[Rfam]
RNA sequence: GCCGGGCUUGGUAACGCGAGCUUGUGACUCGAGUGAGGGCUUUAAGAUGGCUGGACUGUGAUUGAGCUCAGAUUGGUUGGGUUCUGUGGUUGCAAUGUCUGGCUUGCCCGUUCUAAGUUUGGAGUUGGAUCAUGUGGUUUGGGCGAAGGCCUGGGCUUCAUGGUUCCUAAACUAGAGGGUAAAGCGUAAGGCUGGUUUCACAGAGCUGCGAAAACCUCUCUCUCCAAACAGUGGAAGGAUAACGAGCCGGUGCAUUCUCGUCCCAUAUAAACCAGCUGGGCUCCUUCUAAUGGACUCCCAUUUUU
Number, nucleotide and partner (000 for none) at each position: 001g040002c039003c038004g023005g022006g021007c020008u019009u018010g017011g000012u000013a000014a000015c000016g000017c010018g009019a008020g007021c006022u005023u004024g000025u000026g000027a000028c037029u036030c035031g000032a000033g000034u000035g030036a029037g028038g003039g002040c001041u000042u000043u000044a304045a303046g302047a301048u300049g299050g298051c000052u000053g295054g000055a000056c292057u000058g000059u289060g288061a000062u000063u000064g283065a282066g281067c280068u000069c279070a000071g277072a000073u275074u274075g273076g272077u271078u270079g264080g263081g262082u000083u260084c000085u000086g257087u000088g256089g000090u000091u254092g253093c000094a000095a251096u000097g000098u000099c250100u249101g248102g247103c246104u245105u244106g243107c000108c238109c237110g000111u236112u235113c234114u233115a232116a000117g229118u228119u227120u226121g225122g224123a223124g222125u000126u000127g166128g165129a164130u163131c162132a161133u160134g159135u000136g157137g156138u155139u154140u153141g152142g151143g150144c149145g000146a000147a000148g000149g144150c143151c142152u141153g140154g139155g138156c137157u136158u000159c134160a133161u132162g131163g130164u129165u128166c127167c000168u000169a000170a000171a000172c000173u000174a219175g218176a217177g216178g215179g000180u000181a000182a000183a000184g000185c210186g209187u208188a000189a000190g000191g000192c203193u202194g201195g000196u000197u000198u000199c000200a000201c194202a193203g192204a000205g000206c000207u000208g187209c186210g185211a000212a000213a000214a000215c178216c177217u176218c175219u174220c000221u000222c124223u123224c122225c121226a120227a119228a118229c117230a000231g000232u115233g114234g113235a112236a111237g109238g108239a000240u000241a000242a000243c106244g105245a104246g103247c102248c101249g100250g099251u095252g000253c092254a091255u000256u088257c086258u000259c000260g083261u000262c081263c080264c079265a000266u000267a000268u000269a000270a078271a077272c076273c075274a074275g073276c000277u071278g000279g069280g067281c066282u065283c064284c000285u000286u000287c000288u060289a059290a000291u000292g056293g000294a000295c053296u000297c000298c050299c049300a048301u047302u046303u045304u044305u000